[Rfam]
RNA sequence: GUGAACUACCACGAACCUAAAGGUAUCGUGGCUUCUAAAAAAGAAGCUACAUGGUCUUUAGGUUUGUCCCUUCAAGGGUGAGUUCACCAGACUAAGCUAGGAGAAAUCUUAGCUACGUUCAUGAGGUCAUGACACCUUUGGUUGACGCACCAGACCGUUGCUCUGUCGUCCGUGUUUAAGUAGGGCUGAGGUAAGGCUCGGUGACAUGGAUGUCAAAAGCCUUUUGAACCUUGUCGAGGUGAGGUCGGA
Number, nucleotide and partner (000 for none) at each position: 001g087002u086003g085004a084005a083006c082007u081008a000009c000010c031011a000012c028013g027014a000015a000016c023017c022018u000019a000020a000021a000022g017023g016024u000025a000026u000027c013028g012029u000030g000031g010032c046033u045034u044035c043036u000037a000038a000039a000040a000041a000042a000043g035044a034045a033046g032047c000048u000049a000050c000051a000052u000053g000054g000055u000056c000057u000058u000059u000060a000061g000062g000063u000064u000065u000066g000067u000068c000069c000070c000071u000072u000073c000074a000075a000076g000077g000078g000079u000080g000081a007082g006083u005084u004085c003086a002087c001088c000089a000090g235091a234092c233093u000094a231095a114096g113097c112098u111099a110100g109101g108102a107103g000104a000105a000106a000107u102108c101109u100110u099111a098112g097113c096114u095115a000116c000117g229118u228119u227120c226121a225122u000123g223124a222125g221126g220127u219128c000129a000130u000131g000132a166133c165134a000135c000136c160137u000138u000139u157140g156141g155142u154143u153144g245145a000146c243147g000148c241149a240150c239151c238152a000153g143154a142155c141156c140157g139158u000159u000160g136161c000162u000163c000164u000165g133166u132167c000168g211169u210170c209171c208172g207173u206174g205175u204176u203177u000178a000179a000180g202181u201182a000183g199184g198185g197186c196187u194188g000189a000190g000191g000192u000193a000194a187195g000196g186197c185198u184199c183200g000201g181202u180203g176204a175205c174206a173207u172208g171209g170210a169211u168212g000213u000214c000215a000216a000217a000218a000219g127220c126221c125222u124223u123224u000225u121226g120227a119228a118229c117230c000231u094232u000233g092234u091235c090236g000237a000238g151239g150240u149241g148242a000243g146244g000245u144246c000247g000248g000249a000
Background: This 249-nucleotide sequence from Niallia endozanthoxylica belongs to the Rfam family "HNH endonuclease-associated RNA and ORF (HEARO) RNA". For this family Rfam cites "Exceptional structured noncoding RNAs revealed by bacterial metagenome analysis" (Weinberg et al., Nature, 2009). The family has 139 seed sequences and 952 matches in Rfam 15.1. The match comes from Rfam's covariance-model search (112 bits). By type it is a non-coding RNA gene. The source organism's lineage runs through Bacteria, Bacillota, Bacilli, Bacillaceae and Niallia.